[Rfam]
Nucleotides: 217
Stems, first nucleotide, its partner, number of pairs: 002040002006035002009032003015027004051063001054061001075217005094205012108166003118154004124148004128143005169191002172187006
Number, partner (000 for none) and nucleotide at each position: 001000a002040a003039g004000a005000c006035u007034a008000u009032a010031c011030u012000u013000u014000c015027a016026g017025g018024g019000a020000u021000c022000a023000u024018u025017u026016c027015u028000a029000u030011a031010g032009u033000u034007u035006g036000u037000a038000a039003c040002u041000a042000g043000a044000g045000a046000a047000g048000u049000g050000u051063g052000g053000u054061u055000g056000a057000a058000a059000g060000u061054g062000u063051c064000u065000g066000a067000c068000c069000u070000c071000g072000c073000u074000a075217a076216c077215c078214a079213c080000g081000a082000g083000g084000a085000g086000g087000a088000g089000u090000u091000a092000a093000a094205g095204u096203g097202u098201u099200c100199u101198c102197u103196u104195c105194u106000g107000a108166g109165c110164g111000c112000g113000a114000a115000g116000c117000g118154a119153g120152u121151a122000g123000a124148c125147a126146g127145u128143g129142u130141u131140g132139c133000u134000u135000u136000a137000a138000u139132g140131c141130a142129g143128u144000u145127g146126c147125u148124g149000u150000c151121u152120g153119c154118u155000a156000u157000u158000g159000a160000u161000g162000a163000c164110c165109g166108u167000u168000c169191c170190u171000u172187c173186u174185u175184u176183c177182c178000u179000u180000u181000u182177g183176g184175g185174a186173a187172g188000c189000u190170g191169g192000g193000a194105g195104g196103g197102a198101g199100a200099g201098a202097a203096c204095a205094c206000a207000g208000a209000c210000u211000g212000a213079g214078u215077g216076g217075u
Small nucleolar RNA U3: a 217-nucleotide RNA from Mauremys mutica. Rfam links the family to the GO terms nucleolus and RNA processing. The literature on the family includes a 1997 paper in Nucleic Acids Res by Zwieb, "The uRNA database". By type it is a C/D-box small nucleolar RNA. Rfam's curators write: Small nucleolar RNAs (snoRNAs) are involved in the processing and modification of rRNA in the nucleolus. There are two main classes of snoRNAs: the box C/D class, and the box H/ACA class. U3 snoRNA is a member of the box C/D class. Indeed, the box C/D element is a subset of the six short sequence elements found in all U3 snoRNAs, namely boxes A, A', B, C, C', and D. The U3 snoRNA secondary structure is characterised by a small 5' domain (with boxes A and A'), and a larger 3' domain (with boxes B, C, C', and D), the two domains being linked by a single-stranded hinge.